The record is a 53-nucleotide sequence, which matches "6A RNA" in Rfam. The family's RNA type in Rfam is small RNA.

RNA sequence: AGAUAUGCUCAUAGUGUAGUGAGCAGUAUAAUCAAAAGAAAUACACAAAAAGA
Numbered sequence: 001a002g003a004u005a006u007g008c009u010c011a012u013a014g015u016g017u018a019g020u021g022a023g024c025a026g027u028a029u030a031a032u033c034a035a036a037a038g039a040a041a042u043a044c045a046c047a048a049a050a051a052g053a
Base pairs, nucleotide, nucleotide: 006025007024008023009022010021011020014046015045016044017043